RNA sequence: UCUUUCUGUCGUGUAUCCUCGAUUAAUGUAUCCUUAGAUGCUUCAA
Number, nucleotide and partner (000 for none) at each position: 001u000002c000003u000004u000005u000006c000007u000008g023009u022010c021011g020012u000013g000014u000015a000016u000017c000018c000019u000020c011021g010022a009023u008024u000025a000026a000027u000028g000029u000030a042031u000032c040033c000034u000035u000036a000037g000038a000039u000040g032041c000042u030043u000044c000045a000046a000
Shown here is a 46-nucleotide RNA sequence from Krameria lanceolata, a member of the family "Plastid-ycf3 group II-D1 intron".
The family has 385 seed sequences and 1,488 matches in Rfam 15.1.
Plastid rpl16 is a non-coding RNA (ncRNA) recognised in plastids. It was recognised in and intronic region of a ribosome rpl16 gene.
Its family is annotated with Group II intron splicing in the Gene Ontology.